This 350-nucleotide RNA sequence from Pseudoroseicyclus tamaricis belongs to the Rfam family "Alphaproteobacteria transfer-messenger RNA". Rfam classes the family as a non-coding RNA gene. From the family's description: Bacterial tmRNA, also known as 10Sa RNA or SsrA, is named for its dual tRNA and mRNA-like properties.
RNA sequence: CCCCUUGCCCCGGCGCCGCCCCGGCCCUAUCUUCACAUCUGUCUUUCGGGACUAUGGACAUAAACGCGCACGCAAUAAGCGGAUCGGACCCGGGGGCGGUACCCGGCGGCUCCACCAAAUGCCCUUUGUUGGGGGGAUAAUGGGGCCGAAACAGGAUCGACGAACGUCUAAAGGUGUAGCUUUGUCCCGGUGAGGUACCACCGUUAUCGGUCCGUACAGUACAAUUGCCAACAACAAUCGUGCUCCGAUCGCCCUGGCUGCGUAAGCAGUCCGGAAGAUCGAAAUCUAAGCCCUUGCGCCUAGCAGUGUAAGGCGGGGUUCGCAGGCACCUGGCAACAGAAGCCUGCACU
Numbered sequence: 001c002c003c004c005u006u007g008c009c010c011c012g013g014c015g016c017c018g019c020c021c022c023g024g025c026c027c028u029a030u031c032u033u034c035a036c037a038u039c040u041g042u043c044u045u046u047c048g049g050g051a052c053u054a055u056g057g058a059c060a061u062a063a064a065c066g067c068g069c070a071c072g073c074a075a076u077a078a079g080c081g082g083a084u085c086g087g088a089c090c091c092g093g094g095g096g097c098g099g100u101a102c103c104c105g106g107c108g109g110c111u112c113c114a115c116c117a118a119a120u121g122c123c124c125u126u127u128g129u130u131g132g133g134g135g136g137a138u139a140a141u142g143g144g145g146c147c148g149a150a151a152c153a154g155g156a157u158c159g160a161c162g163a164a165c166g167u168c169u170a171a172a173g174g175u176g177u178a179g180c181u182u183u184g185u186c187c188c189g190g191u192g193a194g195g196u197a198c199c200a201c202c203g204u205u206a207u208c209g210g211u212c213c214g215u216a217c218a219g220u221a222c223a224a225u226u227g228c229c230a231a232c233a234a235c236a237a238u239c240g241u242g243c244u245c246c247g248a249u250c251g252c253c254c255u256g257g258c259u260g261c262g263u264a265a266g267c268a269g270u271c272c273g274g275a276a277g278a279u280c281g282a283a284a285u286c287u288a289a290g291c292c293c294u295u296g297c298g299c300c301u302a303g304c305a306g307u308g309u310a311a312g313g314c315g316g317g318g319u320u321c322g323c324a325g326g327c328a329c330c331u332g333g334c335a336a337c338a339g340a341a342g343c344c345u346g347c348a349c350u
Stems, first nucleotide, its partner, number of pairs: 041052004056187005066180002068177004080166002084163003090106005107148007188203004194213002197211003316331004322347006
Dot-bracket structure: ........................................((((....))))...(((((.....((((((........((..(((...(((((.......)))))(((((((............................)))))))............))).)).......)))).))..)))))((((..[[.[[[)))).....]]]]]......................................................................................................[[[[..((((((]]]]..........))))))...